[Rfam]
RNA sequence: GCACCUGCAUCUUUCCUGUGCCUUGCUGUGCAGUGCAAGCUGGGGCUACAGCACAGCAAUGGAAGUCCAGGUGACUUGUUUUCCACUGGUUUGGAACUCAUCUCAACACCUCUGCAACACUU
Number, nucleotide and partner (000 for none) at each position: 001g046002c045003a000004c043005c042006u000007g000008c000009a000010u000011c000012u000013u000014u035015c000016c033017u032018g031019u030020g000021c028022c000023u000024u000025g000026c000027u000028g021029u000030g019031c018032a017033g016034u000035g014036c000037a000038a000039g000040c000041u000042g005043g004044g000045g002046c001047u000048a000049c000050a000051g000052c000053a000054c000055a000056g115057c114058a113059a000060u000061g110062g000063a000064a000065g000066u000067c000068c000069a103070g102071g101072u100073g099074a098075c000076u096077u000078g000079u000080u000081u000082u000083c094084c093085a092086c000087u000088g000089g000090u000091u000092u085093g084094g083095a000096a076097c000098u074099c073100a072101u071102c070103u069104c000105a000106a000107c000108a000109c000110c061111u000112c000113u058114g057115c056116a000117a000118c000119a000120c000121u000122u000